[Rfam]
RNA sequence: CAAUAGGGUGGCAGCGACCCUCAGGAAGCUUGGGGUCCCACCUUUGC
Numbered sequence: 001c002a003a004u005a006g007g008g009u010g011g012c013a014g015c016g017a018c019c020c021u022c023a024g025g026a027a028g029c030u031u032g033g034g035g036u037c038c039c040a041c042c043u044u045u046g047c
Stems, first nucleotide, its partner, number of pairs: 006043006019035007

Rfam assigns this 47-nucleotide RNA sequence to the family "Hepatitis C virus stem-loop I". The base pairs follow the family's consensus structure, which was predicted with RNAfold. By type it is a cis-regulatory element. A reference for the family is Pirakitikulr et al. (2016), "The Coding Region of the HCV Genome Contains a Network of Regulatory RNA Structures", Mol Cell.